RNA sequence: GGCCAGUGAUGUAAGGAUAAUAUUUGCUACUCUUGAUGAGUUAUAAAUAUCAUUUGAUGAUUCUUUAUCCACCAAGAUCUGUGAGGCC
Numbered sequence: 001g002g003c004c005a006g007u008g009a010u011g012u013a014a015g016g017a018u019a020a021u022a023u024u025u026g027c028u029a030c031u032c033u034u035g036a037u038g039a040g041u042u043a044u045a046a047a048u049a050u051c052a053u054u055u056g057a058u059g060a061u062u063c064u065u066u067a068u069c070c071a072c073c074a075a076g077a078u079c080u081g082u083g084a085g086g087c088c
Stems, first nucleotide, its partner, number of pairs: 001088004
Rfam assigns this 88-nucleotide RNA sequence from Artemisia annua to the family "Small nucleolar RNA SNORD24". Its family is annotated with RNA processing and nucleolus in the Gene Ontology. The source organism's lineage runs through Eukaryota, Streptophyta, Embryophyta, Pentapetalae and Artemisia.